[Rfam]
A member of the RNA family "Enterococcus sRNA 64" from Enterococcus lacertideformus, 65 nucleotides long. The organism belongs to Enterococcus, within Bacteria. Rfam 15.1 lists 18 matches to the family in 12 species. It scores 50 bits against the family's covariance model.

RNA sequence: AAAAGCACGCUUCUUUUGAUUGAGUUUAGUCACUUUCAGCUUAGAGGGAUGUGUGCUUUUUGUGU
Numbered sequence: 001a002a003a004a005g006c007a008c009g010c011u012u013c014u015u016u017u018g019a020u021u022g023a024g025u026u027u028a029g030u031c032a033c034u035u036u037c038a039g040c041u042u043a044g045a046g047g048g049a050u051g052u053g054u055g056c057u058u059u060u061u062g063u064g065u
Stems, first nucleotide, its partner, number of pairs: 002059007009050001011049005018040001020038001022036002024033002